[Rfam]
Nucleotides: 300
Base pairs, nucleotide, nucleotide: 001157002156003155004154005153006152007151008150011143012142013141014140017047018046019045021043022042023041048101049100050099051098052097056095058093063088064087065086066085067084068081069080070079071078072077104138105137106136111131112130113129114128115127209295210294211293212292213229214228215227216226217225234288235287236286237284238283239282240281241280242278243277244276250271251270252269253268254267257264
Number, partner (000 for none) and nucleotide at each position: 001157g002156g003155g004154u005153g006152u007151c008150u009000g010000a011143g012142g013141g014140a015000a016000a017047g018046g019045u020000a021043g022042c023041c024000c025000c026000a027000g028000u029000a030000c031000g032000a033000a034000a035000g036000g037000a038000a039000c040000a041023g042022g043021c044000c045019g046018c047017c048101g049100u050099g051098g052097c053000c054000u055000c056095u057000u058093g059000u060000g061000g062000a063088u064087c065086g066085g067084u068081u069080g070079u071078c072077u073000g074000a075000c076000a077072a078071g079070g080069c081068a082000c083000u084067g085066c086065c087064g088063a089000g090000u091000a092000g093058c094000u095056a096000c097052g098051c099050c100049a101048u102000a103000g104138u105137g106136g107000a108000u109000a110000a111131a112130g113129g114128c115127u116000g117000a118000a119000a120000g121000c122000a123000u124000c125000u126000a127115a128114g129113c130112c131111u132000g133000a134000a135000g136106c137105c138104a139000c140014u141013c142012c143011u144000g145000a146000a147000a148000a149000g150008a151007g152006a153005c154004a155003c156002c157001c158000a159000u160000u161000c162000u163000c164000c165000u166000g167000u168000c169000a170000u171000a172000u173000g174000g175000u176000g177000g178000g179000g180000c181000c182000g183000g184000u185000g186000a187000c188000g189000g190000c191000a192000a193000c194000g195000c196000c197000g198000a199000c200000a201000g202000g203000g204000g205000a206000c207000g208000a209295a210294g211293g212292c213229c214228c215227c216226c217225a218000u219000a220000g221000a222000a223000g224000a225217u226216g227215g228214g229213g230000u231000u232000g233000a234288u235287a236286g237284g238283c239282u240281g241280g242278g243277g244276g245000u246000g247000u248000a249000a250271g251270u252269u253268g254267c255000g256000a257264g258000c259000u260000u261000c262000g263000g264257c265000g266000a267254g268253c269252a270251a271250u272000u273000c274000a275000g276244c277243c278242c279000a280241c281240c282239a283238g284237u285000a286236c287235u288234a289000a290000u291000a292212g293211c294210c295209u296000g297000a298000g299000g300000u
Rfam assigns this 300-nucleotide part of an RNA from a Theionarchaea archaeon to the family "Archaeal large subunit ribosomal RNA". Lineage of the source: Archaea > Methanobacteriati > Methanobacteriota > Theionarchaea.